Annotation
Rfam assigns this 67-nucleotide RNA from Bacillus licheniformis to the family "Bacillaceae-1 RNA". The source organism's lineage runs through Bacteria, Bacillati, Bacillota, Caryophanales and Bacillus licheniformis.
RNA sequence: GGAGAAGGAUCGGCGGCUAAUCGCCCAGGCGUCCUGCCUGAACGCCGCCGUCGUCACUUCCUGUGAA
Numbered sequence: 001g002g003a004g005a006a007g008g009a010u011c012g013g014c015g016g017c018u019a020a021u022c023g024c025c026c027a028g029g030c031g032u033c034c035u036g037c038c039u040g041a042a043c044g045c046c047g048c049c050g051u052c053g054u055c056a057c058u059u060c061c062u063g064u065g066a067a
Stems, first nucleotide, its partner, number of pairs: 011050007026040005054066004
Dot-bracket structure: ..........(((((((........(((((.....)))))...)))))))...((((.....)))).